About this RNA: The record is a 125-nucleotide sequence from Cricetulus griseus, which matches "Small nucleolar RNA SNORA44" in Rfam. Its family is annotated with nucleolus and RNA processing in the Gene Ontology. A reference for the family is Huttenhofer et al. (2001), "RNomics: an experimental approach that identifies 201 candidates for novel, small, non-messenger RNAs in mouse", EMBO J. The family's RNA type in Rfam is H/ACA-box small nucleolar RNA. ACA44 is a member of the H/ACA class of snoRNA that guide the sites of modification of uridines to pseudouridines.

RNA sequence: CAGCAUGUUUCCAGGGUCUAUGGCUGUUUGUGGCCCUGGGAUCUCCAACCACAUACCAACUGGAGGGACUUGGACAGCCCAGGUCAGCACAGUGCCUGUAGAUGCCACUCAGUUUUCCUGUAUAU
Numbered sequence: 001c002a003g004c005a006u007g008u009u010u011c012c013a014g015g016g017u018c019u020a021u022g023g024c025u026g027u028u029u030g031u032g033g034c035c036c037u038g039g040g041a042u043c044u045c046c047a048a049c050c051a052c053a054u055a056c057c058a059a060c061u062g063g064a065g066g067g068a069c070u071u072g073g074a075c076a077g078c079c080c081a082g083g084u085c086a087g088c089a090c091a092g093u094g095c096c097u098g099u100a101g102a103u104g105c106c107a108c109u110c111a112g113u114u115u116u117c118c119u120g121u122a123u124a125u
Stems, first nucleotide, its partner, number of pairs: 011039002016035001018033005062118006077105002080098004